The record is a 77-nucleotide sequence from Brevundimonas sp., which matches "Makes More Granules Regulator RNA (mmgR)" in Rfam. Its Rfam clan is "suhB sRNA clan". The family's RNA type in Rfam is small RNA. Pairs were carried over by alignment from the consensus structure.
RNA sequence: GCGUCUUGCCCUUCCUGGGCGUUUCCUCCCUAUAGACUUUCAUACCGCGCCCUCGGGCGCGGUUUUUUUUGGCCGGU
Numbered sequence: 001g002c003g004u005c006u007u008g009c010c011c012u013u014c015c016u017g018g019g020c021g022u023u024u025c026c027u028c029c030c031u032a033u034a035g036a037c038u039u040u041c042a043u044a045c046c047g048c049g050c051c052c053u054c055g056g057g058c059g060c061g062g063u064u065u066u067u068u069u070u071g072g073c074c075g076g077u
Base pairs, nucleotide, nucleotide: 008020009019010018011017045062046061047060048059049058050057051056